[Rfam]
The family of this 127-nucleotide sequence from Castor canadensis is "Small nucleolar RNA U109". The family has 26 seed sequences and 1,405 matches in Rfam 15.1. Gene Ontology terms of the family: nucleolus and RNA processing. Lineage of the source: Eukaryota > Eumetazoa > Craniata > Tetrapoda > Castor. A search with the family's covariance model found it, with a score of 95 bits. A reference for the family is Richard et al. (2003), "A common sequence motif determines the Cajal body-specific localization of box H/ACA scaRNAs", EMBO J.
RNA sequence: UUGCAUGAGGAAAUGCCUUCCUUUAGGAGCAGAGCUACAUCCACAAAAUGCUACAUUUAAAAAGGGAGUUCUCAGGGCUGCCAACCUUACAACAGAGGUUGAAUGGUAGUAUAGUUCUCCUACAAAA
Numbered sequence: 001u002u003g004c005a006u007g008a009g010g011a012a013a014u015g016c017c018u019u020c021c022u023u024u025a026g027g028a029g030c031a032g033a034g035c036u037a038c039a040u041c042c043a044c045a046a047a048a049u050g051c052u053a054c055a056u057u058u059a060a061a062a063a064g065g066g067a068g069u070u071c072u073c074a075g076g077g078c079u080g081c082c083a084a085c086c087u088u089a090c091a092a093c094a095g096a097g098g099u100u101g102a103a104u105g106g107u108a109g110u111a112u113a114g115u116u117c118u119c120c121u122a123c124a125a126a127a
Base pairs, nucleotide, nucleotide: 003051004050005049006048017032018031020029022027065120066119067118068117077107078106082101083100084099085098086097087096088095